The family of this 130-nucleotide RNA sequence from Brevibacillus borstelensis is "PyrR binding site".

RNA sequence: AGUUCCUUUAAAACAGUCCCGUGAGGCUGGCAAGGAAGUAGGGCGCUGUUUGCCCUGCUUGUCGAACGAAGCGAAAAGCUUCUUGCCUAUGCCCGCCUCACGCGGCAGCUUGGCAAGAAGCUUUUUUUGU
Numbered sequence: 001a002g003u004u005c006c007u008u009u010a011a012a013a014c015a016g017u018c019c020c021g022u023g024a025g026g027c028u029g030g031c032a033a034g035g036a037a038g039u040a041g042g043g044c045g046c047u048g049u050u051u052g053c054c055c056u057g058c059u060u061g062u063c064g065a066a067c068g069a070a071g072c073g074a075a076a077a078g079c080u081u082c083u084u085g086c087c088u089a090u091g092c093c094c095g096c097c098u099c100a101c102g103c104g105g106c107a108g109c110u111u112g113g114c115a116a117g118a119a120g121c122u123u124u125u126u127u128u129g130u
Stems, first nucleotide, its partner, number of pairs: 003037006014029005043072002047068006054061001074125014

Description: A reference for the family is Bonner et al. (2001), "Molecular recognition of pyr mRNA by the Bacillus subtilis attenuation regulatory protein PyrR", Nucleic Acids Res. It is annotated as a cis-regulatory element.